[Rfam]
RNA sequence: GGGUCUGUAGUUCCAAUGGGAGAACGCUUCUCUUGCAAAGAAGAGGCUGUGGGUUCGACCCCCACCAGAUCCA
Numbered sequence: 001g002g003g004u005c006u007g008u009a010g011u012u013c014c015a016a017u018g019g020g021a022g023a024a025c026g027c028u029u030c031u032c033u034u035g036c037a038a039a040g041a042a043g044a045g046g047c048u049g050u051g052g053g054u055u056c057g058a059c060c061c062c063c064a065c066c067a068g069a070u071c072c073a
Stems, first nucleotide, its partner, number of pairs: 001072007010025004027043005049065005
Dot-bracket structure: (((((((..((((........)))).(((((.......))))).....(((((.......)))))))))))).
Rfam assigns this 73-nucleotide sequence from Microcoleus sp. FACHB-831 to the family "tRNA". Transfer RNA (tRNA) molecules are approximately 80 nucleotides in length. Their secondary structure includes four short double-helical elements and three loops (D, anti-codon, and T loops). The organism belongs to Microcoleus, within Bacteria. Its family is annotated with triplet codon-amino acid adaptor activity in the Gene Ontology.